[Rfam]
RNA sequence: GAUAAAGAGUGUGAGAGACACUCUCGCCGAAAGUCCAAGGGUUCCUGCGUAAAGCUAAUCUGCGCAGGGUUAGCCGGUCCCUAAGGCGAGGCUGAAAAGCGUAGUCGAUGGGAACUCAGUUUAAUAUUACUGGGCCUGGUGGUAGUGACGGAUGAUGUAAGUUGUUCCUCCUUAUUGGAUUGGAGGGGCCGCGAAAUCGUUCCAGGAAAUAGCUCCACCGUUAAGACCGUACCCCAAACCGACACAGGUGGACAGGUAGAGCAUACCAAGGCGCU
Numbered sequence: 001g002a003u004a005a006a007g008a009g010u011g012u013g014a015g016a017g018a019c020a021c022u023c024u025c026g027c028c029g030a031a032a033g034u035c036c037a038a039g040g041g042u043u044c045c046u047g048c049g050u051a052a053a054g055c056u057a058a059u060c061u062g063c064g065c066a067g068g069g070u071u072a073g074c075c076g077g078u079c080c081c082u083a084a085g086g087c088g089a090g091g092c093u094g095a096a097a098a099g100c101g102u103a104g105u106c107g108a109u110g111g112g113a114a115c116u117c118a119g120u121u122u123a124a125u126a127u128u129a130c131u132g133g134g135c136c137u138g139g140u141g142g143u144a145g146u147g148a149c150g151g152a153u154g155a156u157g158u159a160a161g162u163u164g165u166u167c168c169u170c171c172u173u174a175u176u177g178g179a180u181u182g183g184a185g186g187g188g189c190c191g192c193g194a195a196a197u198c199g200u201u202c203c204a205g206g207a208a209a210u211a212g213c214u215c216c217a218c219c220g221u222u223a224a225g226a227c228c229g230u231a232c233c234c235c236a237a238a239c240c241g242a243c244a245c246a247g248g249u250g251g252a253c254a255g256g257u258a259g260a261g262c263a264u265a266c267c268a269a270g271g272c273g274c275u
Stems, first nucleotide, its partner, number of pairs: 006024006025273004033253004039233002044068006053061002075229004080111002085106003089102001091100003116133005136225001137220002141216002144214003150202004161192002164189008239248002255267004